[Rfam]
RNA sequence: ACGGAGCCGGCUCUACCCCCCCGGAGCCGGACCGUGGACGGCCCCCGCUAUCCCCCCAGCGGGGGCCGUCCCAU
Numbered sequence: 001a002c003g004g005a006g007c008c009g010g011c012u013c014u015a016c017c018c019c020c021c022c023g024g025a026g027c028c029g030g031a032c033c034g035u036g037g038a039c040g041g042c043c044c045c046c047g048c049u050a051u052c053c054c055c056c057c058a059g060c061g062g063g064g065g066c067c068g069u070c071c072c073a074u
Stems, first nucleotide, its partner, number of pairs: 002036002004033001007030007037070013

The record is a 74-nucleotide sequence from Nocardiopsis ansamitocini, which matches "6C RNA" in Rfam. The literature on the family includes a 2007 paper in Nucleic Acids Res by Weinberg et al., "Identification of 22 candidate structured RNAs in bacteria using the CMfinder comparative genomics pipeline". NCBI's taxonomy places the organism under Bacteria, Bacillati, Actinomycetota, Nocardiopsidaceae, Nocardiopsis. The base pairs follow the family's consensus structure, which is taken from published work.